[Rfam]
RNA sequence: GUCCAGAAUGCGGCGGACCAGAGCCAGAAACCCGCGAGGGUCACGGCAGCAGCCGGUCGGUAUCGUGUCGUCAAGAUCGCGAGACCGGCUGU
Numbered sequence: 001g002u003c004c005a006g007a008a009u010g011c012g013g014c015g016g017a018c019c020a021g022a023g024c025c026a027g028a029a030a031c032c033c034g035c036g037a038g039g040g041u042c043a044c045g046g047c048a049g050c051a052g053c054c055g056g057u058c059g060g061u062a063u064c065g066u067g068u069c070g071u072c073a074a075g076a077u078c079g080c081g082a083g084a085c086c087g088g089c090u091g092u
Stems, first nucleotide, its partner, number of pairs: 001018004023047003031039002049092010063082005

The record is a 92-nucleotide sequence from Neorhizobium alkalisoli, which matches "Rhizobiales sRNA Atu_Ti1" in Rfam.
The family's RNA type in Rfam is small RNA.
NCBI's taxonomy places the organism under Bacteria, Pseudomonadati, Pseudomonadota, Alphaproteobacteria, Neorhizobium.